[Rfam]
Rfam assigns this 48-nucleotide RNA to the family "gut-2 RNA". The sequence is in the family's curated seed alignment. The family's consensus secondary structure is taken from published work.

RNA sequence: AACCGUCGAGUAAUCGGACUUGGCGAAGGACUGAUUGGAGUCAUGGAU
Numbered sequence: 001a002a003c004c005g006u007c008g009a010g011u012a013a014u015c016g017g018a019c020u021u022g023g024c025g026a027a028g029g030a031c032u033g034a035u036u037g038g039a040g041u042c043a044u045g046g047a048u
Stems, first nucleotide, its partner, number of pairs: 004025008029042004